[Rfam]
RNA: ALIL pseudoknot
RNA sequence: GGCAUAUUUUGCGAUGGCGAAGCUCGACCGCCGGUCAAAGUGGUGAUGAGUUUCAUCGAUACCCAUCGGGGCACACACGGGUUGAGCCGAUCUGUAGUCUUCUGCCGAUUGACCCA
Number, nucleotide and partner (000 for none) at each position: 001g000002g000003c000004a000005u000006a000007u000008u000009u000010u000011g000012c000013g000014a000015u000016g032017g031018c030019g029020a000021a000022g000023c000024u000025c000026g000027a000028c000029c019030g018031c017032c016033g000034g000035u000036c000037a000038a000039a000040g000041u000042g000043g000044u000045g000046a000047u000048g000049a000050g000051u000052u000053u000054c000055a000056u000057c000058g000059a000060u000061a000062c000063c000064c000065a000066u000067c000068g000069g000070g000071g000072c000073a000074c000075a000076c000077a000078c000079g115080g114081g113082u112083u000084g000085a000086g000087c000088c111089g110090a000091u108092c107093u000094g105095u104096a103097g102098u000099c000100u000101u000102c097103u096104g095105c094106c000107g092108a091109u000110u089111g088112a082113c081114c080115c079116a000